[Rfam]
RNA sequence: UGCCUUUCUAAAGACUCCGCUAAGGAGCACCUUGAAAGGCUAGUUUAUAAAUAAACUAGGUC
Numbered sequence: 001u002g003c004c005u006u007u008c009u010a011a012a013g014a015c016u017c018c019g020c021u022a023a024g025g026a027g028c029a030c031c032u033u034g035a036a037a038g039g040c041u042a043g044u045u046u047a048u049a050a051a052u053a054a055a056c057u058a059g060g061u062c
Stems, first nucleotide, its partner, number of pairs: 002040007015027004029061004
Description:
Shown here is a 62-nucleotide RNA from Crinivirus flavibetae, a member of the family "3'-terminal pseudoknot in SPCSV". The literature on the family includes a 2004 paper in J Gen Virol by Livieratos et al., "Analysis of the RNA of Potato yellow vein virus: evidence for a tripartite genome and conserved 3'-terminal structures among members of the genus Crinivirus". A search with the family's covariance model found it, with a score of 36 bits. By type it is a cis-regulatory element. The organism belongs to Crinivirus flavibetae, within Viruses.